The family of this 114-nucleotide RNA from Planococcus massiliensis is "SAM riboswitch aptamer (S box leader)". The organism belongs to Planococcus, within Bacteria. The SAM riboswitch is found upstream of a number of genes which code for proteins involved in methionine or cysteine biosynthesis in Gram-positive bacteria.

RNA sequence: CUCUUAUUCCGAGCUGGUGGAGGGGUCAGGCCCAAUGAAACCCGGCAACCUGCUGCGAUUUGCAGCGAUGGUGCCAAACCUGUAGCAAGGCUUUUAGGCCUUGGAUGAUAAGAG
Numbered sequence: 001c002u003c004u005u006a007u008u009c010c011g012a013g014c015u016g017g018u019g020g021a022g023g024g025g026u027c028a029g030g031c032c033c034a035a036u037g038a039a040a041c042c043c044g045g046c047a048a049c050c051u052g053c054u055g056c057g058a059u060u061u062g063c064a065g066c067g068a069u070g071g072u073g074c075c076a077a078a079c080c081u082g083u084a085g086c087a088a089g090g091c092u093u094u095u096a097g098g099c100c101u102u103g104g105a106u107g108a109u110a111a112g113a114g
Stems, first nucleotide, its partner, number of pairs: 001114008013043001016042003022033003027085001029083001030080001044075004049071002051067004086103006
Pairs were carried over by alignment from the consensus structure, which is taken from published work.